The family of this 354-nucleotide RNA from Sphingomonas sp. Leaf33 is "Alphaproteobacteria transfer-messenger RNA". The family is grouped with related families in Rfam's "tRNA clan". Pairs were carried over by alignment from the consensus structure, which is taken from published work. Lineage of the source: Bacteria > Pseudomonadati > Alphaproteobacteria > Sphingomonadales > Sphingomonas. The family's RNA type in Rfam is non-coding RNA gene.
[Rfam]
RNA sequence: GGCCUUUCCAUCCGCGCGCGGCCCCCCUAUAUCGGUCGGGCCGGCGGGCUUGCCCGUCCGGAUAUGGCGAUAAAGGAUUGCGUGCAAUAGAUGCAGCGGACCCGGGGGCAGUACCCGGCGGCUCCACCACAAGUGGUGGUGUACUUGGACACCGUUUCUGACGGGGCCGAACCAGGAUCGACGUGUAUUGAAAAGCGUAUGUCUUUCGCUCGGAAUGGGACCACCGCAACGGCCCAUUACACAAGUGCCAACGAUAACGAAGCACUCGCAAUUGCAGCGUAACCCCAAGGCCUAACGGCUUAAGGUUAUUCUAAAAUGCGCGGUCGGGCGCACCGGGCAACAGAAGCGACUCCG
Numbered sequence: 001g002g003c004c005u006u007u008c009c010a011u012c013c014g015c016g017c018g019c020g021g022c023c024c025c026c027c028u029a030u031a032u033c034g035g036u037c038g039g040g041c042c043g044g045c046g047g048g049c050u051u052g053c054c055c056g057u058c059c060g061g062a063u064a065u066g067g068c069g070a071u072a073a074a075g076g077a078u079u080g081c082g083u084g085c086a087a088u089a090g091a092u093g094c095a096g097c098g099g100a101c102c103c104g105g106g107g108g109c110a111g112u113a114c115c116c117g118g119c120g121g122c123u124c125c126a127c128c129a130c131a132a133g134u135g136g137u138g139g140u141g142u143a144c145u146u147g148g149a150c151a152c153c154g155u156u157u158c159u160g161a162c163g164g165g166g167c168c169g170a171a172c173c174a175g176g177a178u179c180g181a182c183g184u185g186u187a188u189u190g191a192a193a194a195g196c197g198u199a200u201g202u203c204u205u206u207c208g209c210u211c212g213g214a215a216u217g218g219g220a221c222c223a224c225c226g227c228a229a230c231g232g233c234c235c236a237u238u239a240c241a242c243a244a245g246u247g248c249c250a251a252c253g254a255u256a257a258c259g260a261a262g263c264a265c266u267c268g269c270a271a272u273u274g275c276a277g278c279g280u281a282a283c284c285c286c287a288a289g290g291c292c293u294a295a296c297g298g299c300u301u302a303a304g305g306u307u308a309u310u311c312u313a314a315a316a317u318g319c320g321c322g323g324u325c326g327g328g329c330g331c332a333c334c335g336g337g338c339a340a341c342a343g344a345a346g347c348g349a350c351u352c353c354g
Stems, first nucleotide, its partner, number of pairs: 041061004066210005076203003080198004092187003096184003102118005119169007211226003216236003221232002321335004326353003331348001